[Rfam]
Rfam assigns this 117-nucleotide RNA sequence from Streptomycetaceae bacterium MP113-05 to the family "Actinobacteria sRNA Ms_IGR-7".
By type it is a small RNA.
RNA sequence: CGGAAGAGCCUUGUCAUCGUGCGUGCUGGAAGCCUCAAGAACUCCCAUCAUCGCAGUUCACAAGGCUCUUCCUUGUUCCCGGAGAAGUUGUCCACAGGCGUCACUCGGUGAAUCCGG
Numbered sequence: 001c002g003g004a005a006g007a008g009c010c011u012u013g014u015c016a017u018c019g020u021g022c023g024u025g026c027u028g029g030a031a032g033c034c035u036c037a038a039g040a041a042c043u044c045c046c047a048u049c050a051u052c053g054c055a056g057u058u059c060a061c062a063a064g065g066c067u068c069u070u071c072c073u074u075g076u077u078c079c080c081g082g083a084g085a086a087g088u089u090g091u092c093c094a095c096a097g098g099c100g101u102c103a104c105u106c107g108g109u110g111a112a113u114c115c116g117g
Base pairs, nucleotide, nucleotide: 002072003071004070005069006068007067008066009065010064011063012062013061014060016058018056020055021054022053023052024050025049027047029045031043032042097115098114101111102110103109
The base pairs follow the family's consensus structure.